[Rfam]
RNA sequence: GGUAGCUAAAGAUAAUCGCAGGAUUUAGAGUAACAUCAGUGAUUGUUCUUACUUCUCCGAUCGUGGAAUCAUACAAGCCGCCCCACCGAGUAGCUUUAGCUACCAGCAACAACGCGCCUGCUCCUAGAAACAACAAAUGGUGGCCUAAGAUAAGCCCUACUUUAGCCGGAUUAUUCCA
Numbered sequence: 001g002g003u004a005g006c007u008a009a010a011g012a013u014a015a016u017c018g019c020a021g022g023a024u025u026u027a028g029a030g031u032a033a034c035a036u037c038a039g040u041g042a043u044u045g046u047u048c049u050u051a052c053u054u055c056u057c058c059g060a061u062c063g064u065g066g067a068a069u070c071a072u073a074c075a076a077g078c079c080g081c082c083c084c085a086c087c088g089a090g091u092a093g094c095u096u097u098a099g100c101u102a103c104c105a106g107c108a109a110c111a112a113c114g115c116g117c118c119u120g121c122u123c124c125u126a127g128a129a130a131c132a133a134c135a136a137a138u139g140g141u142g143g144c145c146u147a148a149g150a151u152a153a154g155c156c157c158u159a160c161u162u163u164a165g166c167c168g169g170a171u172u173a174u175u176c177c178a
Stems, first nucleotide, its partner, number of pairs: 136175006144169002
This 178-nucleotide RNA from Synechococcus sp. PCC 7335 belongs to the Rfam family "Antisense RNA which regulates isiA expression". The organism belongs to Synechococcus, within Bacteria. It scores 97 bits against the family's covariance model.